[Rfam]
RNA sequence: UAGUUAUCAAGAAAGGCGGAGGGAUUAGACCCUAUGAAGCCUUAGCAACCCUUUGCUCCAAAAGCAAUGAAGGUGCUAAAUUCUGCCCAAUUUAUGUGGGACAGAUAACAA
Dot-bracket structure: (.((((((....(((((...(((..[[[[)))......)))))((((.(((.((((.......)))).)..))))))...(]]]]((((.......))))..))))))).)
RNA: SAM riboswitch aptamer (S box leader)
Organism: Sediminicola sp. YIK13